[Rfam]
RNA sequence: CGCCGGACGCCGCCGAGUCGCCUCGUGUCCCCGGACGCGGGCGAGCCGGGGACCCACCGCAGUACUGGGGUGAAUCCUGCCGUCGAGCCUGGCUCGCGGCCGGUAGGGCUGCUUCCCGCCCGAAUCCGUCAGCUAACUCGGUAGGCGGCUGACGGAAGAAAC
Numbered sequence: 001c002g003c004c005g006g007a008c009g010c011c012g013c014c015g016a017g018u019c020g021c022c023u024c025g026u027g028u029c030c031c032c033g034g035a036c037g038c039g040g041g042c043g044a045g046c047c048g049g050g051g052a053c054c055c056a057c058c059g060c061a062g063u064a065c066u067g068g069g070g071u072g073a074a075u076c077c078u079g080c081c082g083u084c085g086a087g088c089c090u091g092g093c094u095c096g097c098g099g100c101c102g103g104u105a106g107g108g109c110u111g112c113u114u115c116c117c118g119c120c121c122g123a124a125u126c127c128g129u130c131a132g133c134u135a136a137c138u139c140g141g142u143a144g145g146c147g148g149c150u151g152a153c154g155g156a157a158g159a160a161a162c
Stems, first nucleotide, its partner, number of pairs: 011147004018044006045142006055067002068127003076103002079100005106121004
RNA: c-di-AMP riboswitch aptamer (ydaO/yuaA leader)